[Rfam]
RNA sequence: CCCCUUGGGGAGUAGCCGGCCUCCGUACGCGGAGGCGCCCGCGUCAACACACUCGAUCUGCAUGAUCGUGGUGCGGGCAACCAGUCCAGGUAGGCGAGACCAGCGGCAUGCCGGCGCAACGGAGUUGGGCGCGCUGGCGGCUGCACGCCAUCUC
Numbered sequence: 001c002c003c004c005u006u007g008g009g010g011a012g013u014a015g016c017c018g019g020c021c022u023c024c025g026u027a028c029g030c031g032g033a034g035g036c037g038c039c040c041g042c043g044u045c046a047a048c049a050c051a052c053u054c055g056a057u058c059u060g061c062a063u064g065a066u067c068g069u070g071g072u073g074c075g076g077g078c079a080a081c082c083a084g085u086c087c088a089g090g091u092a093g094g095c096g097a098g099a100c101c102a103g104c105g106g107c108a109u110g111c112c113g114g115c116g117c118a119a120c121g122g123a124g125u126u127g128g129g130c131g132c133g134c135u136g137g138c139g140g141c142u143g144c145a146c147g148c149c150a151u152c153u154c
Base pairs, nucleotide, nucleotide: 020035021034022033037078038077039076040075041074042073043072044071045070046069054068055067056066057065058064
The family of this 154-nucleotide sequence from Luteimonas chenhongjianii is "Manganese Mn2+ riboswitch aptamer (yybP-ykoY)". The source organism's lineage runs through Bacteria, Pseudomonadati, Gammaproteobacteria, Lysobacteraceae and Luteimonas. About the family: This RNA was originally discovered in E. coli during a large scale screen and was named SraF. The family was later found to exist upstream of related families of protein genes in many bacteria, including the the yybP and ykoK genes in B. subtilis. The specific functions of these proteins are unknown, but this structured RNA element may be involved in their genetic regulation as a riboswitch. The base pairs follow the family's consensus structure.